Shown here is a 124-nucleotide RNA sequence from Aquilegia coerulea, a member of the family "Small nucleolar RNA SNORD14".
Taxonomically the source falls in Aquilegia (Eukaryota, Spermatophyta, Magnoliopsida, Ranunculaceae).
The family's RNA type in Rfam is C/D-box small nucleolar RNA.
U14 small nucleolar RNA (U14 snoRNA) is required for early cleavages of eukaryotic precursor rRNAs. In yeasts, this molecule possess a stem-loop region (known as the Y-domain) which is essential for function. A similar structure, but with a different consensus sequence, is found in plants, but is absent in vertebrates.
[Rfam]
RNA sequence: UGACUAUGAUGGCAUCUUGAAAGGCUUGUUUCUCAAAACAUUUGCAGUGGCCGCCUAAGUGCUUUCGCCUUCGCCAGGCUUGAGAGUUUGUGCUGCUUCCAUCCUUCCUUGGAUGUCUGAGACU
Numbered sequence: 001u002g003a004c005u006a007u008g009a010u011g012g013c014a015u016c017u018u019g020a021a022a023g024g025c026u027u028g029u030u031u032c033u034c035a036a037a038a039c040a041u042u043u044g045c046a047g048u049g050g051c052c053g054c055c056u057a058a059g060u061g062c063u064u065u066c067g068c069c070u071u072c073g074c075c076a077g078g079c080u081u082g083a084g085a086g087u088u089u090g091u092g093c094u095g096c097u098u099c100c101a102u103c104c105u106u107c108c109u110u111g112g113a114u115g116u117c118u119g120a121g122a123c124u
Stems, first nucleotide, its partner, number of pairs: 002123001004121001061087006